[Rfam]
RNA sequence: GGUCUCGAGUCCCGACGUCAAGCCCUGGCUGGUCGGGCAGCAACCCUCCGCACGUGGCGGGGUGCUCCAGGUGACGACCAGGCACGGCGUCCGUCGUGCAAGCACGCAGC
Numbered sequence: 001g002g003u004c005u006c007g008a009g010u011c012c013c014g015a016c017g018u019c020a021a022g023c024c025c026u027g028g029c030u031g032g033u034c035g036g037g038c039a040g041c042a043a044c045c046c047u048c049c050g051c052a053c054g055u056g057g058c059g060g061g062g063u064g065c066u067c068c069a070g071g072u073g074a075c076g077a078c079c080a081g082g083c084a085c086g087g088c089g090u091c092c093g094u095c096g097u098g099c100a101a102g103c104a105c106g107c108a109g110c
Stems, first nucleotide, its partner, number of pairs: 001079004009038001011037006021030002039066003044062003048057002082099007

SAM (S-adenosyl methionine) riboswitch aptamer: a 110-nucleotide RNA from Cellulomonas sp. JH27-2. SAM-IV is a mRNA element that regulates gene expression via direct sensing of S-adenosylmethionine (SAM or AdoMet). SAM-IV riboswitches share conserved nucleotide positions with the previously described SAM-I riboswitches sequence analysis and molecular recognition experiments suggest that SAM-I and SAM-IV riboswitches share similar ligand binding sites, but have different scaffolds.